Notes:
The family of this 124-nucleotide sequence from Myotis davidii is "Small nucleolar RNA SNORA27". ACA27 is a member of the H/ACA class of snoRNA that guide the sites of modification of uridines to pseudouridines.
RNA sequence: CACCCCCUUUUCACUUUGCCAAUUGGACUUAUGUCUUAUUUGUCAUUCAAGUGGGGCAAAGGAAAUGUCCUUUUAAAACUCGCAAACAGGGUGCUUGUUUUGUAUCCUGUCAGAGGAAACAAAA
Numbered sequence: 001c002a003c004c005c006c007c008u009u010u011u012c013a014c015u016u017u018g019c020c021a022a023u024u025g026g027a028c029u030u031a032u033g034u035c036u037u038a039u040u041u042g043u044c045a046u047u048c049a050a051g052u053g054g055g056g057c058a059a060a061g062g063a064a065a066u067g068u069c070c071u072u073u074u075a076a077a078a079c080u081c082g083c084a085a086a087c088a089g090g091g092u093g094c095u096u097g098u099u100u101u102g103u104a105u106c107c108u109g110u111c112a113g114a115g116g117a118a119a120c121a122a123a124a
Stems, first nucleotide, its partner, number of pairs: 032058005040050003068117006081102001082098004087093001
The family's RNA type in Rfam is H/ACA-box small nucleolar RNA. The pairing is the family consensus, mapped onto this sequence.